[Rfam]
RNA: Group II catalytic intron D1-D4-4
RNA sequence: UAGCUGGUGAAAGUCCAGUCACGGUAAUUGCCAAGAAGCCGUGUAGUCAGUCCCAGUGCGUCGCAGUAAUGCGGGGUGCUAAGCGGGAUGAUGGCUCAUAGUUAUGAGUCGACAAAGAUACAGGUUGCAACAUUA
Numbered sequence: 001u002a003g004c005u006g007g008u009g010a011a012a013g014u015c016c017a018g019u020c021a022c023g024g025u026a027a028u029u030g031c032c033a034a035g036a037a038g039c040c041g042u043g044u045a046g047u048c049a050g051u052c053c054c055a056g057u058g059c060g061u062c063g064c065a066g067u068a069a070u071g072c073g074g075g076g077u078g079c080u081a082a083g084c085g086g087g088a089u090g091a092u093g094g095c096u097c098a099u100a101g102u103u104a105u106g107a108g109u110c111g112a113c114a115a116a117g118a119u120a121c122a123g124g125u126u127g128c129a130a131c132a133u134u135a
Stems, first nucleotide, its partner, number of pairs: 020043005050089005055080005064071002093110006113127002